[Rfam]
RNA sequence: UUCUCGGAUUCGAAACUGCCGGAUAUGCAGGCGGGGUGGGAACAGAUGUGUUCCAAUGUGCUGGCCGGUCUGUCGGGUCUGAACAUGGUCUAUGAGGCUG
Numbered sequence: 001u002u003c004u005c006g007g008a009u010u011c012g013a014a015a016c017u018g019c020c021g022g023a024u025a026u027g028c029a030g031g032c033g034g035g036g037u038g039g040g041a042a043c044a045g046a047u048g049u050g051u052u053c054c055a056a057u058g059u060g061c062u063g064g065c066c067g068g069u070c071u072g073u074c075g076g077g078u079c080u081g082a083a084c085a086u087g088g089u090c091u092a093u094g095a096g097g098c099u100g
Stems, first nucleotide, its partner, number of pairs: 003012001033062002077098001079096002
RNA: Pyrrolysine insertion sequence mttB